[Rfam]
RNA sequence: GGAGUCAGCCAAGACAAUCGCCGCUUACGUAACUUUCGGGUUAACGCGAGGGGAGGAAAGUCCGGGCUCCAUAGGGCAGGGUGCCAGGUAACGCCUGGGCGGCGUGAGCCGACGACAAGUGCAGCAGAGAGCAAACCGCCGAUGGCCCAUGUUUUCGCAAGAAAGUGUGGGAUCAGGUAAGGGUGAAAGGGUGCGGUAAGAGCGCACCGCACGGCUGGUAACAGUUCGUGGCUGGGUAAACUCCACUCGGAGCAAGACCAAAUAGGGAUUCUUGGGGCGGCCCGCCUCGGAUCCGGGUAGGUUGCUUGAGGCUAUGGGUGACCAUAGUCCUAGACGAAUGAUUGUCCACGACAAAACCCGGCUUAAUGGCUGACUCCAACU
Numbered sequence: 001g002g003a004g005u006c007a008g009c010c011a012a013g014a015c016a017a018u019c020g021c022c023g024c025u026u027a028c029g030u031a032a033c034u035u036u037c038g039g040g041u042u043a044a045c046g047c048g049a050g051g052g053g054a055g056g057a058a059a060g061u062c063c064g065g066g067c068u069c070c071a072u073a074g075g076g077c078a079g080g081g082u083g084c085c086a087g088g089u090a091a092c093g094c095c096u097g098g099g100c101g102g103c104g105u106g107a108g109c110c111g112a113c114g115a116c117a118a119g120u121g122c123a124g125c126a127g128a129g130a131g132c133a134a135a136c137c138g139c140c141g142a143u144g145g146c147c148c149a150u151g152u153u154u155u156c157g158c159a160a161g162a163a164a165g166u167g168u169g170g171g172a173u174c175a176g177g178u179a180a181g182g183g184u185g186a187a188a189g190g191g192u193g194c195g196g197u198a199a200g201a202g203c204g205c206a207c208c209g210c211a212c213g214g215c216u217g218g219u220a221a222c223a224g225u226u227c228g229u230g231g232c233u234g235g236g237u238a239a240a241c242u243c244c245a246c247u248c249g250g251a252g253c254a255a256g257a258c259c260a261a262a263u264a265g266g267g268a269u270u271c272u273u274g275g276g277g278c279g280g281c282c283c284g285c286c287u288c289g290g291a292u293c294c295g296g297g298u299a300g301g302u303u304g305c306u307u308g309a310g311g312c313u314a315u316g317g318g319u320g321a322c323c324a325u326a327g328u329c330c331u332a333g334a335c336g337a338a339u340g341a342u343u344g345u346c347c348a349c350g351a352c353a354a355a356a357c358c359c360g361g362c363u364u365a366a367u368g369g370c371u372g373a374c375u376c377c378a379a380c381u
Stems, first nucleotide, its partner, number of pairs: 001377010013346007021053002024050003028046002058364003062361005067252004074283004079248005084098005099113001100111004114243002119241002121237002136182002138178003143175003147171002190208006209232001210230005215224003256303004266294006274288005310329008
This 381-nucleotide RNA sequence from Idiomarina sp. A28L belongs to the Rfam family "Bacterial RNase P class A". It scores 324 bits against the family's covariance model. NCBI's taxonomy places the organism under Bacteria, Pseudomonadati, Gammaproteobacteria, Idiomarinaceae, Idiomarina.